[Rfam]
Nucleotides: 073
Stems, first nucleotide, its partner, number of pairs: 001072007010025004029041003049065005
Number, partner (000 for none) and nucleotide at each position: 001072g002071g003070g004069c005068c006067c007066g008000u009000a010025g011024c012023u013022c014000a015000g016000u017000u018000g019000g020000u021000a022013g023012a024011g025010c026000a027000a028000g029041c030040g031039a032000c033000u034000u035000u036000u037000a038000a039031u040030c041029g042000a043000g044000a045000g046000g047000u048000c049065c050064c051063g052062g053061g054000u055000u056000c057000g058000a059000g060000u061053c062052c063051c064050g065049g066007c067006g068005g069004g070003c071002c072001c073000a

The family of this 73-nucleotide RNA sequence from Magnetospirillum fulvum is "tRNA". By type it is a transfer RNA. It scores 66 bits against the family's covariance model. Transfer RNA (tRNA) molecules are approximately 80 nucleotides in length.